About this RNA
Small nucleolar RNA psi18S-1377: a 139-nucleotide RNA sequence from Drosophila erecta. The family has 15 seed sequences and 113 matches in Rfam 15.1. Rfam's curators write: psi18S-1377 is a member of the H/ACA class of snoRNA. This family is responsible for guiding the modification of uridines 1377 and 1279 to pseudouridine in Drosophila 18S rRNA.

RNA sequence: UCGUUUUUGUGUUAUUUGCUGGAAGUUAUAUCCAAAGCCAGUGAUUGUCAAACAGAACGUAAAUCAAUGGCAGCUAUCACUCCACAAUGUUGAGCCUUCCUCCCACGGCUACUGCAUUACUUUCCGGCUCGCCACACUU
Numbered sequence: 001u002c003g004u005u006u007u008u009g010u011g012u013u014a015u016u017u018g019c020u021g022g023a024a025g026u027u028a029u030a031u032c033c034a035a036a037g038c039c040a041g042u043g044a045u046u047g048u049c050a051a052a053c054a055g056a057a058c059g060u061a062a063a064u065c066a067a068u069g070g071c072a073g074c075u076a077u078c079a080c081u082c083c084a085c086a087a088u089g090u091u092g093a094g095c096c097u098u099c100c101u102c103c104c105a106c107g108g109c110u111a112c113u114g115c116a117u118u119a120c121u122u123u124c125c126g127g128c129u130c131g132c133c134a135c136a137c138u139u
Base pairs, nucleotide, nucleotide: 002059003058004057005056006055007054010050011049016044017043018042019041020040021039022038086118087117088116089115090114093110094109095108096107